This 114-nucleotide RNA from Dermatophagoides farinae belongs to the Rfam family "Potassium channel RNA editing signal". The base pairs follow the family's consensus structure, which is taken from published work. Rfam classes the family as a cis-regulatory element. A search with the family's covariance model found it, with a score of 89 bits.
RNA sequence: GUUGGUUAUGGUGAUAUGCGUCCAGUUUGUGUUUGGGGUAAAUUUGUUGGUUCAUUAUGUGCUAUAGCCGGUGUAUUAACUAUUGCAUUACCAGUGCCGGUUAUUGUAUCAAAU
Numbered sequence: 001g002u003u004g005g006u007u008a009u010g011g012u013g014a015u016a017u018g019c020g021u022c023c024a025g026u027u028u029g030u031g032u033u034u035g036g037g038g039u040a041a042a043u044u045u046g047u048u049g050g051u052u053c054a055u056u057a058u059g060u061g062c063u064a065u066a067g068c069c070g071g072u073g074u075a076u077u078a079a080c081u082a083u084u085g086c087a088u089u090a091c092c093a094g095u096g097c098c099g100g101u102u103a104u105u106g107u108a109u110c111a112a113a114u
Stems, first nucleotide, its partner, number of pairs: 001114002005110001007108005013102003018097004037077004049063003